[Rfam]
RNA: ASdes TB sRNA
RNA sequence: AGGUCGACCGGGUCCACGCCCCGGGUGACGACCAGGUAGUCGCGGAUCGCGAUGCCGUGCCGGGCCUC
Number, nucleotide and partner (000 for none) at each position: 001a000002g000003g000004u063005c062006g061007a000008c059009c000010g000011g000012g029013u028014c000015c027016a026017c025018g000019c000020c000021c000022c000023g000024g000025g017026u016027g015028a013029c012030g000031a000032c000033c000034a000035g056036g055037u054038a053039g000040u052041c051042g050043c049044g048045g000046a000047u000048c044049g043050c042051g041052a040053u038054g037055c036056c035057g000058u000059g008060c000061c006062g005063g004064g000065c000066c000067u000068c000